[Rfam]
RNA sequence: AACGUGCUCCGGGGUCGGUGAAAGUCCGAACCGGCGGUGACAGUCCGCGAGCCGGUCGCAGCAAUGCGGCUGGUUGAGCUGGUGAAACUCCAGCACCGACGGUAAUGGGUUGCGAAAGCGACACUCAGUCCGGAUGGGAGGCAGCACGCG
Numbered sequence: 001a002a003c004g005u006g007c008u009c010c011g012g013g014g015u016c017g018g019u020g021a022a023a024g025u026c027c028g029a030a031c032c033g034g035c036g037g038u039g040a041c042a043g044u045c046c047g048c049g050a051g052c053c054g055g056u057c058g059c060a061g062c063a064a065u066g067c068g069g070c071u072g073g074u075u076g077a078g079c080u081g082g083u084g085a086a087a088c089u090c091c092a093g094c095a096c097c098g099a100c101g102g103u104a105a106u107g108g109g110u111u112g113c114g115a116a117a118g119c120g121a122c123a124c125u126c127a128g129u130c131c132g133g134a135u136g137g138g139a140g141g142c143a144g145c146a147c148g149c150g
Stems, first nucleotide, its partner, number of pairs: 003148006009141002016028003032098002034048004043096002051074003078094005100132003
RNA: FMN riboswitch aptamer (RFN element)